[Rfam]
RNA sequence: CCCCUGAUCCGGGCCCCUCUGGCGAGAGCAGCCGGCUGCAUCGCGAUGUCGGAUCACUCUU
Numbered sequence: 001c002c003c004c005u006g007a008u009c010c011g012g013g014c015c016c017c018u019c020u021g022g023c024g025a026g027a028g029c030a031g032c033c034g035g036c037u038g039c040a041u042c043g044c045g046a047u048g049u050c051g052g053a054u055c056a057c058u059c060u061u
Stems, first nucleotide, its partner, number of pairs: 006055007022044004028039003
Record summary: Rfam assigns this 61-nucleotide RNA from Muricoccus nepalensis to the family "terC RNA". The base pairs follow the family's consensus structure, which is taken from published work. Taxonomically the source falls in Muricoccus (Bacteria, Pseudomonadota, Alphaproteobacteria, Roseomonadaceae).